Small nucleolar RNA SNORD24: a 66-nucleotide RNA from Python bivittatus.

RNA sequence: UGCAGAUGAUGGUAGCAGAUAUCUGAGCUUUCUUGAUGACUCCCAACCACCAAGAUCGCUGAUGCA
Numbered sequence: 001u002g003c004a005g006a007u008g009a010u011g012g013u014a015g016c017a018g019a020u021a022u023c024u025g026a027g028c029u030u031u032c033u034u035g036a037u038g039a040c041u042c043c044c045a046a047c048c049a050c051c052a053a054g055a056u057c058g059c060u061g062a063u064g065c066a
Base pairs, nucleotide, nucleotide: 001066002065003064004063
About this RNA: Its family is annotated with RNA processing and nucleolus in the Gene Ontology. The base pairs follow the family's consensus structure, which was predicted with PFOLD. Taxonomically the source falls in Python (Eukaryota, Euteleostomi, Lepidosauria, Episquamata). A search with the family's covariance model found it, with a score of 46 bits.